[Rfam]
RNA: mir-135 microRNA precursor family
RNA sequence: UCACUGCUGUGUUUUAUGGCUUUCUAUUCCUAUGUGAUUUUCUCUCAUGUCACAUAGGGUCUAAAGCCAUGGGGUACAGAGUGGG
Numbered sequence: 001u002c003a004c005u006g007c008u009g010u011g012u013u014u015u016a017u018g019g020c021u022u023u024c025u026a027u028u029c030c031u032a033u034g035u036g037a038u039u040u041u042c043u044c045u046c047a048u049g050u051c052a053c054a055u056a057g058g059g060u061c062u063a064a065a066g067c068c069a070u071g072g073g074g075u076a077c078a079g080a081g082u083g084g085g
Stems, first nucleotide, its partner, number of pairs: 002084001005081001007079017028059010